[Rfam]
Nucleotides: 346
Base pairs, nucleotide, nucleotide: 001309002308003307009306011197012196013195014194016191018190019189020188022084023083024082025081026080027079028078030077031076032073033072034071035070036069037068038067040066045063046062047061048060049059050058051057088184089183090182091180092179093178094177095176099173100172101171102170103169104168105167106150110146111145112144113143114142115141116140117139121132122131123130158165159164202243203242204241205240206239207238211237212236216232217231218230219229254305255304256303257302258301259300262283263282264281265280266279267278268277269276287294288293311338312337313336320331321330322329323328
Number, partner (000 for none) and nucleotide at each position: 001309g002308g003307c004000g005000u006000a007000a008000a009306g010000g011197g012196u013195g014194c015000g016191u017000a018190g019189g020188c021000g022084g023083u024082u025081a026080a027079a028078u029000a030077a031076g032073u033072u034071u035070a036069u037068g038067g039000u040066c041000u042000a043000a044000g045063u046062g047061c048060a049059a050058u051057g052000c053000u054000c055000a056000a057051c058050a059049u060048u061047g062046u063045g064000a065000u066040g067038c068037u069036a070035u071034a072033a073032a074000a075000a076031c077030u078028g079027u080026u081025u082024a083023g084022c085000u086000a087000g088184a089183g090182u091180a092179a093178g094177a095176u096000a097000g098000a099173g100172g101171c102170a103169a104168g105167c106150g107000g108000a109000a110146u111145u112144c113143c114142a115141u116140g117139u118000g119000u120000a121132g122131u123130g124000g125000u126000a127000a128000a129000a130123u131122g132121c133000g134000u135000a136000a137000a138000u139117a140116u141115a142114u143113g144112g145111a146110g147000g148000a149000a150106c151000a152000c153000c154000a155000g156000u157000a158165g159164c160000g161000a162000a163000g164159g165158c166000g167105g168104c169103u170102u171101g172100c173099u174000g175000g176095g177094u178093c179092u180091u181000u182090a183089c184088u185000g186000a187000c188020g189019c190018u191016g192000a193000g194014g195013c196012a197011c198000g199000a200000a201000a202243g203242c204241g205240u206239g207238g208000g209000g210000a211237g212236c213000a214000a215000a216232c217231a218230g219229g220000a221000u222000u223000a224000g225000a226000u227000a228000c229219c230218c231217u232216g233000g234000u235000a236212g237211u238207c239206c240205a241204c242203g243202c244000c245000g246000u247000a248000a249000a250000c251000g252000a253000u254305g255304a256303g257302u258301a259300c260000u261000a262283a263282a264281c265280g266279u267278u268277g269276g270000g271000u272000a273000a274000a275000a276269c277268c278267a279266g280265u281264g282263u283262u284000g285000a286000a287294g288293u289000u290000a291000a292000c293288a294287c295000a296000u297000u298000a299000a300259g301258u302257a303256c304255u305254c306009c307003g308002c309001c310000u311338g312337a313336g314000u315000a316000g317000u318000a319000c320331g321330u322329a323328c324000g325000c326000a327000a328323g329322u330321a331320u332000g333000a334000a335000a336313c337312u338311u339000a340000a341000a342000g343000g344000a345000a346000u
About this RNA:
Shown here is a 346-nucleotide part of an RNA from Oenothera phytoplasma 86-7, a member of the family "Bacterial small subunit ribosomal RNA". Gene Ontology terms of the family: ribosome and structural constituent of ribosome. Pairs were carried over by alignment from the consensus structure, which is taken from published work.